[Rfam]
This 81-nucleotide RNA sequence from Dongibacter bovis belongs to the Rfam family "ZMP/ZTP riboswitch aptamer (pfl RNA motif)". Taxonomically the source falls in Dongibacter (Bacteria, Bacillati, Negativicutes, Selenomonadales).
RNA sequence: AAGCAGCCGCGGGGCUGACGGAAGUGGAAUCGACCACAUGCCGCGCGGGUGUCGUGACUGCCGACCGUCUGGGCACAGGAA
Numbered sequence: 001a002a003g004c005a006g007c008c009g010c011g012g013g014g015c016u017g018a019c020g021g022a023a024g025u026g027g028a029a030u031c032g033a034c035c036a037c038a039u040g041c042c043g044c045g046c047g048g049g050u051g052u053c054g055u056g057a058c059u060g061c062c063g064a065c066c067g068u069c070u071g072g073g074c075a076c077a078g079g080a081a
Base pairs, nucleotide, nucleotide: 003052004051005050007048008047009046010045011044015040017069018068019067020066021065024037025036026035027034059075060074061073062072